This 72-nucleotide RNA sequence belongs to the Rfam family "mir-234 microRNA precursor family". A reference for the family is Lim et al. (2003), "The microRNAs of Caenorhabditis elegans", Genes Dev. Its Rfam clan is "mir-137 clan".
[Rfam]
RNA sequence: UCGAAAGGUGUUCAAGAGUUAAUAAUAAGUGCACAGAUGCUUCUUUUAUUAUUGCUCGAGAAUACCCUUCGA
Numbered sequence: 001u002c003g004a005a006a007g008g009u010g011u012u013c014a015a016g017a018g019u020u021a022a023u024a025a026u027a028a029g030u031g032c033a034c035a036g037a038u039g040c041u042u043c044u045u046u047u048a049u050u051a052u053u054g055c056u057c058g059a060g061a062a063u064a065c066c067c068u069u070c071g072a
Stems, first nucleotide, its partner, number of pairs: 008065006017056003021053009